[Rfam]
RNA sequence: UGCACAAAGCACAUGAUGACAAGGUGCUGAAACUGAUUGUAUGAAGUACAUUCAAUCCAACACUGAGCUUUGUGUC
Numbered sequence: 001u002g003c004a005c006a007a008a009g010c011a012c013a014u015g016a017u018g019a020c021a022a023g024g025u026g027c028u029g030a031a032a033c034u035g036a037u038u039g040u041a042u043g044a045a046g047u048a049c050a051u052u053c054a055a056u057c058c059a060a061c062a063c064u065g066a067g068c069u070u071u072g073u074g075u076c
Stems, first nucleotide, its partner, number of pairs: 002075009

The family of this 76-nucleotide sequence from Alaudala cheleensis is "Small nucleolar RNA SNORD69".
Lineage of the source: Eukaryota > Teleostomi > Sarcopterygii > Sauria > Alaudala.
The match comes from Rfam's covariance-model search (50 bits).
Gene Ontology terms of the family: RNA processing and nucleolus.
Rfam classes the family as a C/D-box small nucleolar RNA.